Notes:
Rfam assigns this 86-nucleotide RNA from Texcoconibacillus texcoconensis to the family "c-di-GMP-I riboswitch aptamer". Taxonomically the source falls in Texcoconibacillus (Bacteria, Bacillati, Bacilli, Caryophanales). The base pairs follow the family's consensus structure, which is taken from published work.
[Rfam]
RNA sequence: AAAUGAAAAAGGCAAAGCUAUAGAAAUGUAGUGGCGCAAAGCUAUAGGGGCUAAAGCGAGGGAUGCAAUGCCAGCCAGUUACCGUU
Numbered sequence: 001a002a003a004u005g006a007a008a009a010a011g012g013c014a015a016a017g018c019u020a021u022a023g024a025a026a027u028g029u030a031g032u033g034g035c036g037c038a039a040a041g042c043u044a045u046a047g048g049g050g051c052u053a054a055a056g057c058g059a060g061g062g063a064u065g066c067a068a069u070g071c072c073a074g075c076c077a078g079u080u081a082c083c084g085u086u
Base pairs, nucleotide, nucleotide: 012037013036017032018031019030020029021028022027040080041079042078043077047076048075049072050071051070056066057065058064